[Rfam]
RNA sequence: AUCUUAUCAAGAGCGGCGGAGGGAUUUGGCCCGAUGAAGCCCAGCAACCUAUUUGACCGCAAAAAAGGUGCCACAUCCAACAGAGAUCACCAGAUAUCUUCUGAAAGAUAAGAU
Numbered sequence: 001a002u003c004u005u006a007u008c009a010a011g012a013g014c015g016g017c018g019g020a021g022g023g024a025u026u027u028g029g030c031c032c033g034a035u036g037a038a039g040c041c042c043a044g045c046a047a048c049c050u051a052u053u054u055g056a057c058c059g060c061a062a063a064a065a066a067g068g069u070g071c072c073a074c075a076u077c078c079a080a081c082a083g084a085g086a087u088c089a090c091c092a093g094a095u096a097u098c099u100u101c102u103g104a105a106a107g108a109u110a111a112g113a114u
Stems, first nucleotide, its partner, number of pairs: 001114008013042001015041003021032003026080004044071003048068002050064001052062002076106001081103005

This 114-nucleotide RNA sequence from Desmospora activa belongs to the Rfam family "SAM riboswitch aptamer (S box leader)". Lineage of the source: Bacteria > Bacillati > Bacilli > Thermoactinomycetaceae > Desmospora activa. Pairs were carried over by alignment from the consensus structure, which is taken from published work.